[Rfam]
RNA: Mason-Pfizer monkey virus packaging signal
RNA sequence: UGGAGCCCAACGUGGGGCCUGGAUACUGGGGGACAACGUGAGGGACAUGACGGAAGAAGAAGGGGUGCGCACCCGCUCAAAUAGUUCGGAGACAUCGUGGUAGCCUGCUGUGACCGAGCUGAGAGGUAAGUUGGUCGUUAAUCAUGGGGCAAGAAUUAAGUCAGCAUCAGAAAUAUGUGAUACACUUAAGAGAAGCUCUACGGGCAAGAGGAGUAAAGGUUACAACUGAGGAUUUAUUUCAUUUCUUUGAUUUUGUGAAAGACAUCUGCCCAU
Numbered sequence: 001u002g003g004a005g006c007c008c009a010a011c012g013u014g015g016g017g018c019c020u021g022g023a024u025a026c027u028g029g030g031g032g033a034c035a036a037c038g039u040g041a042g043g044g045a046c047a048u049g050a051c052g053g054a055a056g057a058a059g060a061a062g063g064g065g066u067g068c069g070c071a072c073c074c075g076c077u078c079a080a081a082u083a084g085u086u087c088g089g090a091g092a093c094a095u096c097g098u099g100g101u102a103g104c105c106u107g108c109u110g111u112g113a114c115c116g117a118g119c120u121g122a123g124a125g126g127u128a129a130g131u132u133g134g135u136c137g138u139u140a141a142u143c144a145u146g147g148g149g150c151a152a153g154a155a156u157u158a159a160g161u162c163a164g165c166a167u168c169a170g171a172a173a174u175a176u177g178u179g180a181u182a183c184a185c186u187u188a189a190g191a192g193a194a195g196c197u198c199u200a201c202g203g204g205c206a207a208g209a210g211g212a213g214u215a216a217a218g219g220u221u222a223c224a225a226c227u228g229a230g231g232a233u234u235u236a237u238u239u240c241a242u243u244u245c246u247u248u249g250a251u252u253u254u255g256u257g258a259a260a261g262a263c264a265u266c267u268g269c270c271c272a273u
Stems, first nucleotide, its partner, number of pairs: 006031003012026003037049003086126002093118001096112005131152003138147003157200002160196002208248006217235005258273001261270001263268001